Rfam assigns this 82-nucleotide RNA from Microbacterium ginsengiterrae to the family "Glycine riboswitch aptamer". NCBI's taxonomy places the organism under Bacteria, Bacillati, Actinomycetota, Micrococcales, Microbacterium.
[Rfam]
RNA sequence: CCGCUCUGAAAAGCGAUUCUCGAAUCCGCCGACGGUGAAAGCCCCCGAGGGGCGAAACUCUCAGGCCCAUGACAGAGGGGGA
Numbered sequence: 001c002c003g004c005u006c007u008g009a010a011a012a013g014c015g016a017u018u019c020u021c022g023a024a025u026c027c028g029c030c031g032a033c034g035g036u037g038a039a040a041g042c043c044c045c046c047g048a049g050g051g052g053c054g055a056a057a058c059u060c061u062c063a064g065g066c067c068c069a070u071g072a073c074a075g076a077g078g079g080g081g082a
Base pairs, nucleotide, nucleotide: 001080002079004077005076006075007074008073015026016025017024018023028066029065030064031062032061035060037058041053042052043051044050045049